[Rfam]
RNA sequence: GAAUAUCGCAAGGGCUUACCUCCUCCCAAGCUUGAGCGAUCGAAGGCUGGCUACCUCCUCCCAGUCAGCCCUUCCAAAACGACACCCGCCGCACCUCCUCCCGCGGCGGGUGUUGUUU
Numbered sequence: 001g002a003a004u005a006u007c008g009c010a011a012g013g014g015c016u017u018a019c020c021u022c023c024u025c026c027c028a029a030g031c032u033u034g035a036g037c038g039a040u041c042g043a044a045g046g047c048u049g050g051c052u053a054c055c056u057c058c059u060c061c062c063a064g065u066c067a068g069c070c071c072u073u074c075c076a077a078a079a080c081g082a083c084a085c086c087c088g089c090c091g092c093a094c095c096u097c098c099u100c101c102c103g104c105g106g107c108g109g110g111u112g113u114u115g116u117u118u
Stems, first nucleotide, its partner, number of pairs: 007038003012033005042073002045070007082113011
Shown here is a 118-nucleotide sequence from Paramesorhizobium leguminum, a member of the family "Alphaproteobacterial ar14".
Pairs were carried over by alignment from the consensus structure.
The match comes from Rfam's covariance-model search (90 bits).
The organism belongs to Paramesorhizobium, within Bacteria.